[Rfam]
RNA sequence: UGUUCACAGUGGAGAAAGUUUUAUCUUACUUUAAAUUUUACUCAGUGAGAUUCAACUUCUCCAACUGCAAACU
Number, nucleotide and partner (000 for none) at each position: 001u000002g000003u000004u000005c000006a000007c067008a066009g065010u063011g062012g061013a060014g059015a000016a058017a057018g000019u000020u000021u000022u000023a000024u049025c000026u048027u047028a046029c045030u044031u000032u000033a000034a000035a000036u000037u000038u000039u000040a000041c000042u000043c000044a030045g029046u028047g027048a026049g024050a000051u000052u000053c000054a000055a000056c000057u017058u016059c014060u013061c012062c011063a010064a000065c009066u008067g007068c000069a000070a000071a000072c000073u000
RNA: mir-1175 microRNA precursor family
Organism: Octopus sinensis